[Rfam]
About this RNA:
The family of this 105-nucleotide sequence from Sphingomonas sp. Ant20 is "Glycine riboswitch aptamer". It scores 43 bits against the family's covariance model.
RNA sequence: UCGACACUCUGGAAAGCGUCCUGGCGUCCGCGCCGAGGGCCACCGAAGGGGUAAGCCGCCAAUCAGGCGGUGAAAGCUCUCAGGUUCCGUGACAGAGGGGGUCGG
Numbered sequence: 001u002c003g004a005c006a007c008u009c010u011g012g013a014a015a016g017c018g019u020c021c022u023g024g025c026g027u028c029c030g031c032g033c034c035g036a037g038g039g040c041c042a043c044c045g046a047a048g049g050g051g052u053a054a055g056c057c058g059c060c061a062a063u064c065a066g067g068c069g070g071u072g073a074a075a076g077c078u079c080u081c082a083g084g085u086u087c088c089g090u091g092a093c094a095g096a097g098g099g100g101g102u103c104g105g
Stems, first nucleotide, its partner, number of pairs: 005099001007097005018040004042085003045081002049079003055071006
Dot-bracket structure: ....(.(((((......((((...............)))).(((((..(((...((((((.....)))))).....))))).))).......))))).)......